[Rfam]
RNA sequence: GUACACCCCAAAGGAGUGACAAUUGAGAACACAAGGAGCUUUGGCUUCCAAAUAUGUCUAACGCACUUUGUGUUCUCAGGUCACCCCUUUGGGGCUUCC
Numbered sequence: 001g002u003a004c005a006c007c008c009c010a011a012a013g014g015a016g017u018g019a020c021a022a023u024u025g026a027g028a029a030c031a032c033a034a035g036g037a038g039c040u041u042u043g044g045c046u047u048c049c050a051a052a053u054a055u056g057u058c059u060a061a062c063g064c065a066c067u068u069u070g071u072g073u074u075c076u077c078a079g080g081u082c083a084c085c086c087c088u089u090u091g092g093g094g095c096u097u098c099c
Stems, first nucleotide, its partner, number of pairs: 007093002011089004016084004025077010
Annotation
MIR398 microRNA precursor family: a 99-nucleotide RNA from Quercus lobata. The family has 14 seed sequences and 627 matches in Rfam 15.1. The match comes from Rfam's covariance-model search (80 bits). A reference for the family is Jones-Rhoades and Bartel (2004), "Computational identification of plant microRNAs and their targets, including a stress-induced miRNA", Mol Cell. The base pairs follow the family's consensus structure, which was predicted with WAR. Rfam links the family to the GO terms miRNA-mediated post-transcriptional gene silencing and RISC complex.